[Rfam]
RNA: Bacterial RNase P class A
RNA sequence: CGAGUUGGCAGGGCGGCCGCGGCCGAGGGCAUCGUCUCGACGUCUUCGGCCGAGGAAAGUCCGGACUCCACAGGGCAGGGUGGUUGCUAACAGCAACCCGGGGUGACCCGCGGGAAAGUGCCACAGAAAGCAGACCGCCCGGCCACCUCGGCCGGGUAAGGGUGAAAGGGUGGUGUAAGAGACCACCAGCGCCUCGGGUGACCGGGGCGGCUCGGUAAACCCCACCCGGAGCAAGGCCAGAAGGGAGCCGUUGCGGCUCCUGCGCAGGCGUUUGAGGGCGGCCCGUCCGAUGCCUGCGGGUAGGCCGCUUGAGCCUGUCGGCGACGGCAGGCCCAGAUGGAUGGUCGCCCAGCGCUGCGCCGUAAGGCGGGCGUGGACAGAAUCCGGCUUACAUGCCAACUCGUCCA
Numbered sequence: 001c002g003a004g005u006u007g008g009c010a011g012g013g014c015g016g017c018c019g020c021g022g023c024c025g026a027g028g029g030c031a032u033c034g035u036c037u038c039g040a041c042g043u044c045u046u047c048g049g050c051c052g053a054g055g056a057a058a059g060u061c062c063g064g065a066c067u068c069c070a071c072a073g074g075g076c077a078g079g080g081u082g083g084u085u086g087c088u089a090a091c092a093g094c095a096a097c098c099c100g101g102g103g104u105g106a107c108c109c110g111c112g113g114g115a116a117a118g119u120g121c122c123a124c125a126g127a128a129a130g131c132a133g134a135c136c137g138c139c140c141g142g143c144c145a146c147c148u149c150g151g152c153c154g155g156g157u158a159a160g161g162g163u164g165a166a167a168g169g170g171u172g173g174u175g176u177a178a179g180a181g182a183c184c185a186c187c188a189g190c191g192c193c194u195c196g197g198g199u200g201a202c203c204g205g206g207g208c209g210g211c212u213c214g215g216u217a218a219a220c221c222c223c224a225c226c227c228g229g230a231g232c233a234a235g236g237c238c239a240g241a242a243g244g245g246a247g248c249c250g251u252u253g254c255g256g257c258u259c260c261u262g263c264g265c266a267g268g269c270g271u272u273u274g275a276g277g278g279c280g281g282c283c284c285g286u287c288c289g290a291u292g293c294c295u296g297c298g299g300g301u302a303g304g305c306c307g308c309u310u311g312a313g314c315c316u317g318u319c320g321g322c323g324a325c326g327g328c329a330g331g332c333c334c335a336g337a338u339g340g341a342u343g344g345u346c347g348c349c350c351a352g353c354g355c356u357g358c359g360c361c362g363u364a365a366g367g368c369g370g371g372c373g374u375g376g377a378c379a380g381a382a383u384c385c386g387g388c389u390u391a392c393a394u395g396c397c398a399a400c401u402c403g404u405c406c407a
Stems, first nucleotide, its partner, number of pairs: 001403010011392001012349007020052011057390003061387005066231004073284004078227005083097005098112001099110004113222002118220002120216003135161002137157008169187006189211001190209008235306004264297006276288004313332008